[Rfam]
RNA sequence: UACGUUCAUCCUAAUUUAAUCAAAUUAGGACGGAAGUAGUCGUGAGACGAAGGAACGCAUU
Numbered sequence: 001u002a003c004g005u006u007c008a009u010c011c012u013a014a015u016u017u018a019a020u021c022a023a024a025u026u027a028g029g030a031c032g033g034a035a036g037u038a039g040u041c042g043u044g045a046g047a048c049g050a051a052g053g054a055a056c057g058c059a060u061u
Base pairs, nucleotide, nucleotide: 003057004056005055006054007053009030010029011028012027013026014025015024016023017022033058039048040047041046

About this RNA: A member of the RNA family "Glutamine riboswitch aptamer (glnA leader)", 61 nucleotides long. The sequence is in the family's curated seed alignment. On this family, see Ren et al., Cell Rep 2015: "Structural and Dynamic Basis for Low-Affinity, High-Selectivity Binding of L-Glutamine by the Glutamine Riboswitch".